The family of this 44-nucleotide RNA sequence from Candidatus Vecturithrix granuli is "Acido-Lenti-1 RNA". The base pairs follow the family's consensus structure, which is taken from published work.

RNA sequence: CCCAGGGCUGACACUGGGCUACCAUAUCCCGUCCCUUCGGGACU
Numbered sequence: 001c002c003c004a005g006g007g008c009u010g011a012c013a014c015u016g017g018g019c020u021a022c023c024a025u026a027u028c029c030c031g032u033c034c035c036u037u038c039g040g041g042a043c044u
Base pairs, nucleotide, nucleotide: 001018002017003016004015005014031043032042033041034040035039